[Rfam]
RNA sequence: UCACUUGUAUACGACUGACGGAAAAACAGUUUUACUGUGAGUGGAGGAAACCACAUGGAGUAUAGAAGCAGAGGAAAUAGCCGACCGUCUGGGCAGAGUCC
Numbered sequence: 001u002c003a004c005u006u007g008u009a010u011a012c013g014a015c016u017g018a019c020g021g022a023a024a025a026a027c028a029g030u031u032u033u034a035c036u037g038u039g040a041g042u043g044g045a046g047g048a049a050a051c052c053a054c055a056u057g058g059a060g061u062a063u064a065g066a067a068g069c070a071g072a073g074g075a076a077a078u079a080g081c082c083g084a085c086c087g088u089c090u091g092g093g094c095a096g097a098g099u100c101c
Stems, first nucleotide, its partner, number of pairs: 004068003008064005015057001017089005041054004078096001080094003